[Rfam]
RNA sequence: AUUCCUGUUUUAGUACCACCUAUCUGCCUUUUUUUGUCAGAAUGUGUGGUUAUGCUAAUAGGAUAGAGAAACUGCCUGUCAAAGUCUGAAGGGGCAGAUGGCCACACCCACUACCUCUAUAUGUAUUGACAGCACAUCAUAAC
Number, nucleotide and partner (000 for none) at each position: 001a000002u000003u000004c062005c061006u060007g059008u000009u000010u000011u000012a000013g000014u000015a000016c049017c048018a047019c046020c000021u000022a000023u000024c000025u000026g000027c000028c000029u000030u000031u000032u000033u000034u000035u000036g000037u000038c000039a000040g000041a000042a000043u000044g000045u000046g019047u018048g017049g016050u000051u000052a000053u000054g000055c000056u000057a000058a000059u007060a006061g005062g004063a000064u000065a000066g000067a000068g000069a000070a000071a000072c000073u000074g000075c000076c000077u000078g130079u129080c128081a127082a000083a000084g000085u000086c000087u000088g000089a000090a000091g000092g000093g000094g000095c000096a118097g117098a116099u000100g000101g000102c000103c000104a000105c000106a000107c000108c000109c000110a000111c000112u000113a000114c000115c000116u098117c097118u096119a000120u000121a000122u000123g000124u000125a000126u000127u081128g080129a079130c078131a000132g000133c000134a000135c000136a000137u000138c000139a000140u000141a000142a000143c000

The family of this 143-nucleotide RNA sequence from Electrophorus electricus is "Small nucleolar RNA SNORA29".
For this family Rfam cites "RNomics: an experimental approach that identifies 201 candidates for novel, small, non-messenger RNAs in mouse" (Huttenhofer et al., EMBO J, 2001).
It scores 66 bits against the family's covariance model.
ACA29 is a member of the H/ACA class of snoRNA that guide the sites of modification of uridines to pseudouridines.